RNA sequence: CGGAUAGAUUAUUGUAUUCGACUAUAUUCAUGGUGUGAAACAGGGGAUUACACUGUUUUAAACGGAAAGUGAAUCAAUUAACAUAAUAAACUCCU
Numbered sequence: 001c002g003g004a005u006a007g008a009u010u011a012u013u014g015u016a017u018u019c020g021a022c023u024a025u026a027u028u029c030a031u032g033g034u035g036u037g038a039a040a041c042a043g044g045g046g047a048u049u050a051c052a053c054u055g056u057u058u059u060a061a062a063c064g065g066a067a068a069g070u071g072a073a074u075c076a077a078u079u080a081a082c083a084u085a086a087u088a089a090a091c092u093c094c095u
Stems, first nucleotide, its partner, number of pairs: 002094003009089007017081002020079002023076001026074006034064003037059007
RNA: MIR6152 microRNA precursor family
Organism: Nicotiana sylvestris